[Rfam]
RNA sequence: UGCCAAAACUCUUUGUCAGGGCGCCUCUCUCCUCACGGAUCAACUACGGAGGUGCCUGUUACAGUUUUGGAAGAAUAAUACCGUUCGCCGCCCGCGGUCUCCCGUUCUGGGAGAGCUUUCCCGGGCAUAGAUGGGUAACCCCGUUUUGGGGUAUGCCGUCGCUCUAGAACGCGGAGGAUCUUAUGAGUUGAGCAUGGCCAUCGUAAAGACCCAAUUAUGCCAUUGCUCGUAGUAAAGAACCUCACAUCC
Numbered sequence: 001u002g003c004c005a006a007a008a009c010u011c012u013u014u015g016u017c018a019g020g021g022c023g024c025c026u027c028u029c030u031c032c033u034c035a036c037g038g039a040u041c042a043a044c045u046a047c048g049g050a051g052g053u054g055c056c057u058g059u060u061a062c063a064g065u066u067u068u069g070g071a072a073g074a075a076u077a078a079u080a081c082c083g084u085u086c087g088c089c090g091c092c093c094g095c096g097g098u099c100u101c102c103c104g105u106u107c108u109g110g111g112a113g114a115g116c117u118u119u120c121c122c123g124g125g126c127a128u129a130g131a132u133g134g135g136u137a138a139c140c141c142c143g144u145u146u147u148g149g150g151g152u153a154u155g156c157c158g159u160c161g162c163u164c165u166a167g168a169a170c171g172c173g174g175a176g177g178a179u180c181u182u183a184u185g186a187g188u189u190g191a192g193c194a195u196g197g198c199c200a201u202c203g204u205a206a207a208g209a210c211c212c213a214a215u216u217a218u219g220c221c222a223u224u225g226c227u228c229g230u231a232g233u234a235a236a237g238a239a240c241c242u243c244a245c246a247u248c249c
Stems, first nucleotide, its partner, number of pairs: 003070005019057010030039003082171005090126005096120001098114006130160005138152005174243004179238004189229005196221003203210002